About this RNA: This 83-nucleotide RNA from Manduca sexta belongs to the Rfam family "mir-263 microRNA precursor family". Rfam 15.1 lists 368 matches to the family in 211 species. Its family is annotated with RISC complex and miRNA-mediated post-transcriptional gene silencing in the Gene Ontology.

[Rfam]
RNA sequence: CCAUGCUGGACCUUGGCACUGGGAGAAUUCACAGGAGUUGGUUAUCAUACCCGUGAAUUUCCCGAUGCCUCAGUUUAGUGUGC
Numbered sequence: 001c002c003a004u005g006c007u008g009g010a011c012c013u014u015g016g017c018a019c020u021g022g023g024a025g026a027a028u029u030c031a032c033a034g035g036a037g038u039u040g041g042u043u044a045u046c047a048u049a050c051c052c053g054u055g056a057a058u059u060u061c062c063c064g065a066u067g068c069c070u071c072a073g074u075u076u077a078g079u080g081u082g083c
Stems, first nucleotide, its partner, number of pairs: 003081008015069004020064003023060001025059002029056004034051001